[Rfam]
Shown here is a 131-nucleotide sequence from Sciurus carolinensis, a member of the family "Small nucleolar RNA SNORA3/SNORA45 family".
Its Rfam clan is "SNORA3 clan".
The members of this family belong to the H/ACA class of snoRNAs which are thought to guide the sites of modification of uridines to pseudouridines. This family includes mouse snoMBI-28 and human homologues ACA3 (SNORA3) and ACA3-2 (SNORA45).
Taxonomically the source falls in Sciurus (Eukaryota, Vertebrata, Sciuromorpha, Sciurini).
The base pairs follow the family's consensus structure, which was predicted with RNAalifold.
By type it is an H/ACA-box small nucleolar RNA.
Its family is annotated with RNA processing and nucleolus in the Gene Ontology.
RNA sequence: GCCGAGAUGAGAGUCACAUCCCAACAUGACUCUUGUCCUGCUGUGCUGGAGUCCCUGGAGAGCAUCUGCUGAUCUUGAUUCGCUGAUGGAGACAAUCAGUGCCCCCAUUAGCACCCAGGUCAGAAACAUGC
Numbered sequence: 001g002c003c004g005a006g007a008u009g010a011g012a013g014u015c016a017c018a019u020c021c022c023a024a025c026a027u028g029a030c031u032c033u034u035g036u037c038c039u040g041c042u043g044u045g046c047u048g049g050a051g052u053c054c055c056u057g058g059a060g061a062g063c064a065u066c067u068g069c070u071g072a073u074c075u076u077g078a079u080u081c082g083c084u085g086a087u088g089g090a091g092a093c094a095a096u097c098a099g100u101g102c103c104c105c106c107a108u109u110a111g112c113a114c115c116c117a118g119g120u121c122a123g124a125a126a127c128a129u130g131c
Base pairs, nucleotide, nucleotide: 002058003057004056006054007052008051012047013046015045016044017043018042020040024036025035026034069123070122071121072120073119074118075117077115082112083111084110085109086108088106089105091103093101